[Rfam]
RNA: Small nucleolar RNA ZL1
RNA sequence: GGAGAAGCGAAGUGAUGAGCAUUACUAGCUGGAGCCCCAAAGAGGCACGUGUGUGUGUGUGUGUGUGUAUCUGUAUCCUUGUCUGUGCAUGCACACGUGUGUCUGGGAGUGUGAAUGUGUGUGACUGGUUGUAGGGAACUAGUUAUGUGCCUUGUGUUGGACCAUGACAGUCAAACUGAUAAGAUCUGAUUGCUUC
Numbered sequence: 001g002g003a004g005a006a007g008c009g010a011a012g013u014g015a016u017g018a019g020c021a022u023u024a025c026u027a028g029c030u031g032g033a034g035c036c037c038c039a040a041a042g043a044g045g046c047a048c049g050u051g052u053g054u055g056u057g058u059g060u061g062u063g064u065g066u067g068u069a070u071c072u073g074u075a076u077c078c079u080u081g082u083c084u085g086u087g088c089a090u091g092c093a094c095a096c097g098u099g100u101g102u103c104u105g106g107g108a109g110u111g112u113g114a115a116u117g118u119g120u121g122u123g124a125c126u127g128g129u130u131g132u133a134g135g136g137a138a139c140u141a142g143u144u145a146u147g148u149g150c151c152u153u154g155u156g157u158u159g160g161a162c163c164a165u166g167a168c169a170g171u172c173a174a175a176c177u178g179a180u181a182a183g184a185u186c187u188g189a190u191u192g193c194u195u196c
Stems, first nucleotide, its partner, number of pairs: 004196007014186003026173001028171004036107004041102001043100001045098002049094008061083001065078001067076003109122004125142006144166004149162001151160002